[Rfam]
RNA sequence: GGCGUAUUUCGCCCAGGCGGAGCUCGACCGCCCGUUUCGGAAAUGAUCGCCUUCAUCGACGCACACCGCGCCGUCCACGGGGUCGAGCCGAUCUGCAAAGUGUUGCCGAUCGCCCCG
Numbered sequence: 001g002g003c004g005u006a007u008u009u010c011g012c013c014c015a016g017g018c019g020g021a022g023c024u025c026g027a028c029c030g031c032c033c034g035u036u037u038c039g040g041a042a043a044u045g046a047u048c049g050c051c052u053u054c055a056u057c058g059a060c061g062c063a064c065a066c067c068g069c070g071c072c073g074u075c076c077a078c079g080g081g082g083u084c085g086a087g088c089c090g091a092u093c094u095g096c097a098a099a100g101u102g103u104u105g106c107c108g109a110u111c112g113c114c115c116c117g
Base pairs, nucleotide, nucleotide: 016032017031018030019029020028078117079116080115081114082113089112090111092109093108095106096105097104098103